[Rfam]
Hepatitis C virus stem-loop SL2531 and SL2549AU: a 72-nucleotide RNA sequence.
Rfam classes the family as a cis-regulatory element.
On this family, see Pirakitikulr et al., Mol Cell 2016: "The Coding Region of the HCV Genome Contains a Network of Regulatory RNA Structures".
Nucleotides: 072
Stems, first nucleotide, its partner, number of pairs: 006023007024067002027065005034058001037055002
Number, partner (000 for none) and nucleotide at each position: 001000u002000g003000c004000u005000a006023g007022c008021g009020g010019a011018c012017g013000c014000g015000c016000g017012c018011g019010u020009c021008u022007g023006c024067g025066c026000c027065u028064g029063c030062u031061u032000g033000u034058g035000g036000a037055u038054g039000a040000u041000g042000c043000u044000a045000c046000u047000c048000a049000u050000a051000u052000c053000u054038c055037a056000g057000g058034c059000g060000g061031a062030g063029g064028c065027a066025g067024c068000c069000c070000u071000g072000g